[Rfam]
RNA sequence: AUCCAAGUGCACGGGCGUUUUCCUUCUCCGUGAAGCGAUAAGCUGAGAGAGGAAUUUUGCUAGUUGAAAACUAUACACUGACCACUCCUGGUUGGGUUCGCCUGGCCAGGGAAUAUUUGGAACCCUUCACAAGC
Numbered sequence: 001a002u003c004c005a006a007g008u009g010c011a012c013g014g015g016c017g018u019u020u021u022c023c024u025u026c027u028c029c030g031u032g033a034a035g036c037g038a039u040a041a042g043c044u045g046a047g048a049g050a051g052g053a054a055u056u057u058u059g060c061u062a063g064u065u066g067a068a069a070a071c072u073a074u075a076c077a078c079u080g081a082c083c084a085c086u087c088c089u090g091g092u093u094g095g096g097u098u099c100g101c102c103u104g105g106c107c108a109g110g111g112a113a114u115a116u117u118u119g120g121a122a123c124c125c126u127u128c129a130c131a132a133g134c
Stems, first nucleotide, its partner, number of pairs: 020054005026049003034044003086111011125133003
RNA: U4 spliceosomal RNA